FMN riboswitch aptamer (RFN element): a 150-nucleotide RNA from Microbacterium azadirachtae.
RNA sequence: AACGUGCUCCGGGGUCGGUGAGAAUCCGAACCGGCGGUGACAGUCCGCGAACCGAGGAUCCGACCGGGAUCCGAGGCCGAUCCGGUGGAAUUCCGGGACCGACGGUGAUGCGAGCGAGAGCUUGCGAGUCCGGAUGAGAGGAAGCACGCA
Numbered sequence: 001a002a003c004g005u006g007c008u009c010c011g012g013g014g015u016c017g018g019u020g021a022g023a024a025u026c027c028g029a030a031c032c033g034g035c036g037g038u039g040a041c042a043g044u045c046c047g048c049g050a051a052c053c054g055a056g057g058a059u060c061c062g063a064c065c066g067g068g069a070u071c072c073g074a075g076g077c078c079g080a081u082c083c084g085g086u087g088g089a090a091u092u093c094c095g096g097g098a099c100c101g102a103c104g105g106u107g108a109u110g111c112g113a114g115c116g117a118g119a120g121c122u123u124g125c126g127a128g129u130c131c132g133g134a135u136g137a138g139a140g141g142a143a144g145c146a147c148g149c150a
Stems, first nucleotide, its partner, number of pairs: 003148006009141002016028003032101002034048004043099002052076002081097005103132003
A search with the family's covariance model found it, with a score of 74 bits. Rfam links the family to the GO term FMN binding.